Small nucleolar RNA SNORD83: a 77-nucleotide RNA from Cyprinodon variegatus. The literature on the family includes a 2000 paper in Nucleic Acids Res by Jady and Kiss, "Characterisation of the U83 and U84 small nucleolar RNAs: two novel 2'-O-ribose methylation guide RNAs that lack complementarities to ribosomal RNAs". NCBI's taxonomy places the organism under Eukaryota, Acanthomorphata, Cyprinodontidae, Cyprinodontini, Cyprinodon.
[Rfam]
RNA sequence: GCCACAUGAUGAGUUGAAUAGAUGCAGCAGCUUUCGAGCAGUGAUGACCUGCUAUCUAUCACCCUUACCUGAUGGCG
Numbered sequence: 001g002c003c004a005c006a007u008g009a010u011g012a013g014u015u016g017a018a019u020a021g022a023u024g025c026a027g028c029a030g031c032u033u034u035c036g037a038g039c040a041g042u043g044a045u046g047a048c049c050u051g052c053u054a055u056c057u058a059u060c061a062c063c064c065u066u067a068c069c070u071g072a073u074g075g076c077g
Stems, first nucleotide, its partner, number of pairs: 001076004030039003